[Rfam]
RNA sequence: GGUGACCAUCACUUCACGACGGACCGUCCGGCACGUACCUGCCGGUGAAGGAGAAUCCC
Numbered sequence: 001g002g003u004g005a006c007c008a009u010c011a012c013u014u015c016a017c018g019a020c021g022g023a024c025c026g027u028c029c030g031g032c033a034c035g036u037a038c039c040u041g042c043c044g045g046u047g048a049a050g051g052a053g054a055a056u057c058c059c
Base pairs, nucleotide, nucleotide: 010051012050013049014048015047016046028045029044030043031042032041033040
Source information:
This 59-nucleotide RNA from Brachybacterium sp. UMB0905 belongs to the Rfam family "msiK RNA". The match comes from Rfam's covariance-model search (56 bits). The base pairs follow the family's consensus structure, which is taken from published work.